[Rfam]
RNA sequence: AUAGAUUAUAAAGCGCCAGGACUUAUAUAAGUUGACGAGGACUAGAUUAAUCGAAUGAUUCGGCGGAUGGUCUAGAGGCAUAGUACUGCCUAAGCGAUGAACAAAAACAUUGAGUGAUCAAUGAACAGAUUUCAUCAGGUACUCCU
Numbered sequence: 001a002u003a004g005a006u007u008a009u010a011a012a013g014c015g016c017c018a019g020g021a022c023u024u025a026u027a028u029a030a031g032u033u034g035a036c037g038a039g040g041a042c043u044a045g046a047u048u049a050a051u052c053g054a055a056u057g058a059u060u061c062g063g064c065g066g067a068u069g070g071u072c073u074a075g076a077g078g079c080a081u082a083g084u085a086c087u088g089c090c091u092a093a094g095c096g097a098u099g100a101a102c103a104a105a106a107a108c109a110u111u112g113a114g115u116g117a118u119c120a121a122u123g124a125a126c127a128g129a130u131u132u133c134a135u136c137a138g139g140u141a142c143u144c145c146u
Stems, first nucleotide, its partner, number of pairs: 020033005042075005051063004076091005095138001096136005108123006
Shown here is a 146-nucleotide RNA sequence from Catenibacterium sp. CAG:290, a member of the family "glmS glucosamine-6-phosphate activated ribozyme aptamer". Pairs were carried over by alignment from the consensus structure, which is taken from published work. The family's RNA type in Rfam is riboswitch. Lineage of the source: Bacteria > Erysipelotrichia > Erysipelotrichales > Coprobacillaceae > Catenibacterium.